The record is a 104-nucleotide sequence from Triticum urartu, which matches "Small nucleolar RNA snoR99" in Rfam. The match comes from Rfam's covariance-model search (43 bits). Rfam links the family to the GO terms RNA processing and nucleolus. By type it is an H/ACA-box small nucleolar RNA.
RNA sequence: CUACAUCUGGGGGGUAAGCAGUCCCUUACACCUGAUAACCAUCCUCUUCACUUUUUCUGAUGAAACCUUCUGUUUUUAGCUGAACAUCAAGGGAUGAGAUAUUU
Numbered sequence: 001c002u003a004c005a006u007c008u009g010g011g012g013g014g015u016a017a018g019c020a021g022u023c024c025c026u027u028a029c030a031c032c033u034g035a036u037a038a039c040c041a042u043c044c045u046c047u048u049c050a051c052u053u054u055u056u057c058u059g060a061u062g063a064a065a066c067c068u069u070c071u072g073u074u075u076u077u078a079g080c081u082g083a084a085c086a087u088c089a090a091g092g093g094a095u096g097a098g099a100u101a102u103u104u
Base pairs, nucleotide, nucleotide: 040096041095042094043093055084056083057082059080061078062077
Dot-bracket structure: .......................................((((...........(((.(.((..............)).).)))........))))........